[Rfam]
Nucleotides: 174
Stems, first nucleotide, its partner, number of pairs: 002015005028174001030172003035166002040160006046151005063145005073138003077134007085113004091106003
Number, partner (000 for none) and nucleotide at each position: 001000g002015u003014u004013g005012c006011c007000g008000c009000g010000a011006g012005g013004u014003g015002g016000g017000g018000u019000c020000u021000g022000a023000a024000g025000g026000a027000a028174g029000c030172u031171g032170c033000a034000a035166g036165c037000a038000a039000a040160a041159u042158g043157c044156c045155g046151g047150c048149c049148u050147g051000a052000c053000g054000a055000a056000c057000a058000g059000g060000a061000a062000g063145c064144g065143c066142a067141u068000a069000u070000g071000a072000g073138g074137c075136g076000u077134c078133c079132g080131c081130a082129u083128c084000c085113g086112g087111g088110c089000g090000a091106g092105g093104g094000a095000g096000c097000c098000a099000a100000c101000a102000g103000a104093c105092c106091c107000g108000a109000a110088g111087c112086c113085c114000g115000a116000u117000a118000u119000c120000a121000c122000c123000g124000g125000g126000a127000g128083g129082a130081u131080g132079c133078g134077g135000c136075c137074g138073u139000a140000g141067a142066u143065g144064c145063g146000a147050c148049a149048g150047g151046u152000a153000u154000a155045u156044g157043g158042c159041a160040u161000g162000a163000a164000g165036g166035u167000c168000a169000c170032g171031c172030g173000u174028c